[Rfam]
RNA sequence: GGCCACCUCAGGGGGCUUUACCAUUGGCAGAGUAUUACUUUGCCGUACAAGCAACGGAGACAGAAA
Numbered sequence: 001g002g003c004c005a006c007c008u009c010a011g012g013g014g015g016c017u018u019u020a021c022c023a024u025u026g027g028c029a030g031a032g033u034a035u036u037a038c039u040u041u042g043c044c045g046u047a048c049a050a051g052c053a054a055c056g057g058a059g060a061c062a063g064a065a066a
Stems, first nucleotide, its partner, number of pairs: 001017004006013002026044007
Dot-bracket structure: ((((.((....))))))........(((((((.....)))))))......................